[Rfam]
Nucleotides: 340
Base pairs, nucleotide, nucleotide: 004340005339006338007336008308009307010306011305012304013303014302016038018036019035020034021033043334044333045332047331048330049329050328051327052225053224054223055222056221057074058073059072060071061070062069080220081219082218083217084216085106086105087104088103089102090101107121108119109118110117111116122215123214126155127154133147134146135145136144163213164212165209166208167207179196180195181194182193183192184191185190229245230244231243249278250277251276252275253274254273279293280292281291282290283289284288310319311318312317
Number, partner (000 for none) and nucleotide at each position: 001000a002000u003000c004340u005339u006338u007336a008308g009307a010306c011305a012304a013303a014302c015000g016038c017000u018036g019035u020034a021033a022000g023000a024000c025000u026000u027000u028000u029000a030000g031000u032000u033021u034020u035019a036018u037000u038016g039000a040000g041000g042000a043334a044333a045332g046000u047331c048330c049329a050328u051327g052225c053224u054223c055222a056221c057074u058073u059072a060071u061070c062069c063000u064000g065000u066000g067000a068000u069062g070061g071060a072059u073058a074057a075000u076000a077000u078000g079000u080220u081219c082218g083217u084216g085106c086105u087104u088103a089102a090101g091000g092000a093000a094000u095000a096000a097000a098000u099000a100000a101090c102089u103088u104087a105086a106085g107121g108119u109118a110117g111116c112000a113000u114000a115000u116111g117110c118109u119108a120000a121107c122215g123214g124000c125000u126155c127154c128000g129000a130000a131000a132000a133147u134146u135145u136144c137000u138000g139000a140000a141000a142000a143000u144136g145135a146134a147133a148000u149000g150000a151000u152000u153000a154127g155126g156000u157000a158000u159000a160000a161000a162000a163213g164212u165209g166208c167207c168000a169000a170000a171000g172000a173000g174000a175000c176000g177000a178000g179196u180195c181194u182193u183192u184191u185190a186000g187000a188000a189000a190185u191184a192183a193182a194181a195180g196179a197000a198000g199000u200000g201000g202000a203000a204000c205000g206000u207167g208166g209165u210000a211000a212164a213163c214123c215122c216084c217083g218082c219081g220080a221056g222055u223054g224053a225052g226000a227000a228000a229245c230244c231243c232000a233000a234000a235000u236000u237000u238000u239000g240000g241000u242000a243231g244230g245229g246000g247000a248000g249278c250277u251276g252275g253274u254273c255000a256000a257000g258000g259000g260000a261000a262000a263000a264000c265000g266000a267000a268000c269000c270000u271000a272000a273254g274253a275252c276251u277250a278249g279293a280292u281291g282290u283289a284288c285000u286000u287000u288284g289283u290282a291281c292280a293279u294000a295000g296000a297000u298000a299000a300000a301000u302014g303013u304012u305011u306010g307009u308008c309000a310319c311318c312317a313000g314000u315000a316000a317312u318311g319310g320000u321000a322000c323000a324000g325000a326000a327051c328050a329049u330048g331047g332045c333044u334043u335000a336007u337000u338006a339005a340004g
The family of this 340-nucleotide sequence from Mycoplasma sp. CAG:472 is "Bacterial RNase P class B". For this family Rfam cites "The Ribonuclease P Database" (Brown, Nucleic Acids Res, 1999). Lineage of the source: Bacteria > Bacillati > Mollicutes > Mycoplasmatales > Mycoplasma.